[Rfam]
Shown here is a 92-nucleotide sequence from Pseudooceanicola spongiae, a member of the family "Rhodo-rpoB RNA".
RNA sequence: GGAUCGGGAGGUCACCCUUGGGAAGGUGGCCAGGCAUGGAUCCUAACCCCCUGUCUCGAAAGGGCGUGGUGCCGGAGCCCGACGGCAUCGCC
Dot-bracket structure: (((((....(((((((........))))))).......)))))......................(..((((((........))))).)..)